[Rfam]
RNA sequence: CAUACAGAGCCAGUUGCACUAUUAUUAAUAUUUAUUAAUAAUUUUAAGCAUGGGUAUAUUGAUAUGAUAAUUAGUUAUUUAUUAAAGAGUGAUAAAAAUAUUUUAUUUUUGUUAACUUUAAUAAAAUAAUUAUAUUAUUAAUUAAUAUUUAUAUUAUCAAUUUAUUAAUAAUAUAAUAUUUUAUUAAUAUUAUAUAAGACACAUGUGUUAAAUAUAAUUUAUUAAUAAUUAUUAUAUUAUUAUAUAUUGAUAUUCCUAUGUAAUCCUGGUAUGCUGUAUGUCCCGUCUUGAAACACGG
Numbered sequence: 001c002a003u004a005c006a007g008a009g010c011c012a013g014u015u016g017c018a019c020u021a022u023u024a025u026u027a028a029u030a031u032u033u034a035u036u037a038a039u040a041a042u043u044u045u046a047a048g049c050a051u052g053g054g055u056a057u058a059u060u061g062a063u064a065u066g067a068u069a070a071u072u073a074g075u076u077a078u079u080u081a082u083u084a085a086a087g088a089g090u091g092a093u094a095a096a097a098a099u100a101u102u103u104u105a106u107u108u109u110u111g112u113u114a115a116c117u118u119u120a121a122u123a124a125a126a127u128a129a130u131u132a133u134a135u136u137a138u139u140a141a142u143u144a145a146u147a148u149u150u151a152u153a154u155u156a157u158c159a160a161u162u163u164a165u166u167a168a169u170a171a172u173a174u175a176a177u178a179u180u181u182u183a184u185u186a187a188u189a190u191u192a193u194a195u196a197a198g199a200c201a202c203a204u205g206u207g208u209u210a211a212a213u214a215u216a217a218u219u220u221a222u223u224a225a226u227a228a229u230u231a232u233u234a235u236a237u238u239a240u241u242a243u244a245u246a247u248u249g250a251u252a253u254u255c256c257u258a259u260g261u262a263a264u265c266c267u268g269g270u271a272u273g274c275u276g277u278a279u280g281u282c283c284c285g286u287c288u289u290g291a292a293a294c295a296c297g298g
Base pairs, nucleotide, nucleotide: 001280002279003278004277005276006275007274011273012272020094021093022092023091024090025089026088100264101263102262104260105259283298284297285296286295
Shown here is a 298-nucleotide part of an RNA from Strongyloides ratti, a member of the family "Eukaryotic large subunit ribosomal RNA". Taxonomically the source falls in Strongyloides (Eukaryota, Protostomia, Nematoda, Strongyloidoidea).